[Rfam]
RNA sequence: GUUGCAAUGAUGAGUUUAAAUUUGUAGGUGUUGGCAGUGGCGAAUUUAAUUUAAUUUAAAUUUGCCGUGAGCCUUUUUCCACCGAAUUAAACGACUUCUCCUUCCACUGAGCACU
Numbered sequence: 001g002u003u004g005c006a007a008u009g010a011u012g013a014g015u016u017u018a019a020a021u022u023u024g025u026a027g028g029u030g031u032u033g034g035c036a037g038u039g040g041c042g043a044a045u046u047u048a049a050u051u052u053a054a055u056u057u058a059a060a061u062u063u064g065c066c067g068u069g070a071g072c073c074u075u076u077u078u079c080c081a082c083c084g085a086a087u088u089a090a091a092c093g094a095c096u097u098c099u100c101c102u103u104c105c106a107c108u109g110a111g112c113a114c115u
Stems, first nucleotide, its partner, number of pairs: 001115001003113003
Small nucleolar RNA Z152/R70/R12/: a 115-nucleotide RNA from Ananas comosus. NCBI's taxonomy places the organism under Eukaryota, Mesangiospermae, Poales, Bromelioideae, Ananas. Rfam 15.1 lists 604 matches to the family in 220 species.